The family of this 73-nucleotide sequence from Oryctolagus cuniculus is "mir-676 microRNA precursor family".
NCBI's taxonomy places the organism under Eukaryota, Teleostomi, Dipnotetrapodomorpha, Theria, Oryctolagus.
For this family Rfam cites "The expression profile of microRNAs in mouse embryos" (Mineno et al., Nucleic Acids Res, 2006).
The family has 12 seed sequences and 104 matches in Rfam 15.1.
The base pairs follow the family's consensus structure, which was predicted with RNAalifold.
Gene Ontology terms of the family: miRNA-mediated post-transcriptional gene silencing and RISC complex.
RNA sequence: AAUGUGUGACUCUUCAACCUCAGGACUUGCAGAACUAAGAGAGUGCCGUCCUAAGGUUGUUGAGUUGUGCAUU
Number, nucleotide and partner (000 for none) at each position: 001a000002a072003u071004g070005u069006g068007u000008g000009a000010c064011u063012c062013u000014u000015c059016a058017a057018c056019c055020u054021c000022a052023g051024g050025a049026c048027u000028u000029g046030c045031a044032g000033a000034a000035c000036u000037a000038a000039g000040a000041g000042a000043g000044u031045g030046c029047c000048g026049u025050c024051c023052u022053a000054a020055g019056g018057u017058u016059g015060u000061u000062g012063a011064g010065u000066u000067g000068u006069g005070c004071a003072u002073u000